[Rfam]
RNA sequence: GGUAGUAGCAAAUAUUCAAAUGAGAACUUUGAAGGCCGAAGAGGAGAAAGGUUCCAUGUGAACGGCACUUGCACAUGGGUAAGCCGAUCCUAAGGGACGGGGUAACCCCGGCAGACAGCGCGAUCUCGCGUGUUGCCCGAAAGGGAAUCGGGUUAAGAUUUCCCGAGCCGGGACGUGGCGGUUGACGGCGACGUUAGGAAGUCCGGAGACGCCGGCGGGGGCCUCGGGAAGAGUUAUCUUUUCUGCUUAACGGCCUGCCAACCCUGGAAUCGGUUCAGCCGGAGGUAGGGUCCAGCGGUCGGAAGAGCACCGCACGUCGCGCGGUGUCCGGUGCGCCCCCGGCGGCCCUUGAAAAUCCGGAGGACCGAGUACCGUCCACGCCCGGUCGUACUCAUAACCGCAUCAGGUCUCCAAGGUGAACAGCCUCUGGCCAA
Numbered sequence: 001g002g003u004a005g006u007a008g009c010a011a012a013u014a015u016u017c018a019a020a021u022g023a024g025a026a027c028u029u030u031g032a033a034g035g036c037c038g039a040a041g042a043g044g045a046g047a048a049a050g051g052u053u054c055c056a057u058g059u060g061a062a063c064g065g066c067a068c069u070u071g072c073a074c075a076u077g078g079g080u081a082a083g084c085c086g087a088u089c090c091u092a093a094g095g096g097a098c099g100g101g102g103u104a105a106c107c108c109c110g111g112c113a114g115a116c117a118g119c120g121c122g123a124u125c126u127c128g129c130g131u132g133u134u135g136c137c138c139g140a141a142a143g144g145g146a147a148u149c150g151g152g153u154u155a156a157g158a159u160u161u162c163c164c165g166a167g168c169c170g171g172g173a174c175g176u177g178g179c180g181g182u183u184g185a186c187g188g189c190g191a192c193g194u195u196a197g198g199a200a201g202u203c204c205g206g207a208g209a210c211g212c213c214g215g216c217g218g219g220g221g222c223c224u225c226g227g228g229a230a231g232a233g234u235u236a237u238c239u240u241u242u243c244u245g246c247u248u249a250a251c252g253g254c255c256u257g258c259c260a261a262c263c264c265u266g267g268a269a270u271c272g273g274u275u276c277a278g279c280c281g282g283a284g285g286u287a288g289g290g291u292c293c294a295g296c297g298g299u300c301g302g303a304a305g306a307g308c309a310c311c312g313c314a315c316g317u318c319g320c321g322c323g324g325u326g327u328c329c330g331g332u333g334c335g336c337c338c339c340c341g342g343c344g345g346c347c348c349u350u351g352a353a354a355a356u357c358c359g360g361a362g363g364a365c366c367g368a369g370u371a372c373c374g375u376c377c378a379c380g381c382c383c384g385g386u387c388g389u390a391c392u393c394a395u396a397a398c399c400g401c402a403u404c405a406g407g408u409c410u411c412c413a414a415g416g417u418g419a420a421c422a423g424c425c426u427c428u429g430g431c432c433a434a
Base pairs, nucleotide, nucleotide: 015033016032017031018030019029020028034432035431036430037429043412044411045410046409049392050391054078055077056076057075058074059073063071064070085388086387087386089144090143094138095137096112098110100109101108102107119130120129121128148166149165150164151163152162169384170383171382172381174380175379176378177377178376179374180373184195185194186193187192202361203360204359205358206357207356211346212345213344214343216341217340218339219338220337221336222335224331225330226329227247228246230244231243232242251301252300253299254298255297261291262290263289264288265287266286270282271281272280273279308326309325310324311323312322313321398407399406414426415425416424417423
RNA: Eukaryotic large subunit ribosomal RNA, nucleotides 1446 to 1879